Shown here is a 118-nucleotide RNA sequence from Sulfobacillus harzensis, a member of the family "Group II catalytic intron D1-D4-2". The match comes from Rfam's covariance-model search (111 bits). Rfam describes the family as follows. Group II introns are found in rRNA, tRNA and mRNA of organelles in fungi, plants and protists, and also in mRNA in bacteria.
RNA sequence: GAGGGGAGGCCCCUCGAAACCGCCCUGCAGGGGGAGGCUUCAAACCACCGUCAGCGGCUGAGGACAAAAGCCUCGGUCGUGAGCGUGACGGAAAAGGCGGAGCUUGACUCCGUCAGGU
Numbered sequence: 001g002a003g004g005g006g007a008g009g010c011c012c013c014u015c016g017a018a019a020c021c022g023c024c025c026u027g028c029a030g031g032g033g034g035a036g037g038c039u040u041c042a043a044a045c046c047a048c049c050g051u052c053a054g055c056g057g058c059u060g061a062g063g064a065c066a067a068a069a070g071c072c073u074c075g076g077u078c079g080u081g082a083g084c085g086u087g088a089c090g091g092a093a094a095a096g097g098c099g100g101a102g103c104u105u106g107a108c109u110c111c112g113u114c115a116g117g118u
Base pairs, nucleotide, nucleotide: 001015002014003013004012005011016041017040018039020037021036023034024033025032026031046117048091049090050089051088052087053086054080055079057077058076059075061073062072063071096114097113098112099111100110101109